[Rfam]
RNA sequence: UAUAGACAAGGUAAUGGAAUCUACCUGAUCCUUUCUAUGGAUCGAACCGCCCUUUAGGCUGAUGACUCCUGCUCAAAC
Number, nucleotide and partner (000 for none) at each position: 001u000002a000003u000004a000005g000006a000007c000008a000009a000010g025011g024012u023013a022014a000015u000016g069017g068018a067019a000020u065021c064022u013023a012024c011025c010026u000027g000028a000029u000030c000031c000032u000033u000034u000035c000036u000037a000038u000039g000040g000041a000042u000043c000044g000045a000046a000047c000048c000049g059050c058051c057052c000053u000054u000055u000056a000057g051058g050059c049060u000061g000062a000063u000064g021065a020066c000067u018068c017069c016070u000071g000072c000073u000074c000075a000076a000077a000078c000
Rfam assigns this 78-nucleotide RNA from Zymomonas mobilis to the family "Fluoride riboswitch aptamer (crcB RNA motif)". Lineage of the source: Bacteria > Pseudomonadota > Sphingomonadales > Zymomonas mobilis > Zymomonas mobilis subsp. mobilis.